The record is a 96-nucleotide sequence from Artemisia annua, which matches "Small nucleolar RNA snoR27" in Rfam. The family has 6 seed sequences and 649 matches in Rfam 15.1. Its family is annotated with RNA processing and nucleolus in the Gene Ontology. The match comes from Rfam's covariance-model search (63 bits). The source organism's lineage runs through Eukaryota, Viridiplantae, Spermatophyta, Pentapetalae and Artemisia. A reference for the family is Brown et al. (2001), "Multiple snoRNA gene clusters from Arabidopsis", RNA.

RNA sequence: AUAUGAUCAAUGAUGUACUAGAAGAAACUGCGUUAUCUAUCUGUUAAUUCCUUUAAACAGGAAUCUGAUGAUAUAUUAUUCUUCCUGAGAUCUUAU
Dot-bracket structure: (((.(((..................................................................................))).)))